[Rfam]
RNA: Group II catalytic intron D1-D4-4
RNA sequence: UUGCCGGUGAAAGUCCGGUCGCGGUAAUCGCCAGAGAGCCACGUAGCAGGCUCCCAGUGCAGCCGGGUGACUGACUGUGCUGACGCGGAGUAUCCCUCUGAGAAGGAGGUGCAAAGCAGCGGUCCGUACCAUAA
Numbered sequence: 001u002u003g004c005c006g007g008u009g010a011a012a013g014u015c016c017g018g019u020c021g022c023g024g025u026a027a028u029c030g031c032c033a034g035a036g037a038g039c040c041a042c043g044u045a046g047c048a049g050g051c052u053c054c055c056a057g058u059g060c061a062g063c064c065g066g067g068u069g070a071c072u073g074a075c076u077g078u079g080c081u082g083a084c085g086c087g088g089a090g091u092a093u094c095c096c097u098c099u100g101a102g103a104a105g106g107a108g109g110u111g112c113a114a115a116g117c118a119g120c121g122g123u124c125c126g127u128a129c130c131a132u133a134a
Stems, first nucleotide, its partner, number of pairs: 020043002023040002050091005055082006064073001066071001095109005111127002